[Rfam]
RNA sequence: GGGUGAUAUGAUGUCAUACCAUCUUUCGGGACUGACUCUUAAUGGAGAGAUUCUUUUAUUUUUACUGAUCACCA
Numbered sequence: 001g002g003g004u005g006a007u008a009u010g011a012u013g014u015c016a017u018a019c020c021a022u023c024u025u026u027c028g029g030g031a032c033u034g035a036c037u038c039u040u041a042a043u044g045g046a047g048a049g050a051u052u053c054u055u056u057u058a059u060u061u062u063u064a065c066u067g068a069u070c071a072c073c074a
Stems, first nucleotide, its partner, number of pairs: 002073005
Small nucleolar RNA SNORD2: a 74-nucleotide sequence from Scophthalmus maximus. The literature on the family includes a 2004 paper in Gene by Zhou et al., "Identification of a novel box C/D snoRNA from mouse nucleolar cDNA library". It is annotated as a C/D-box small nucleolar RNA.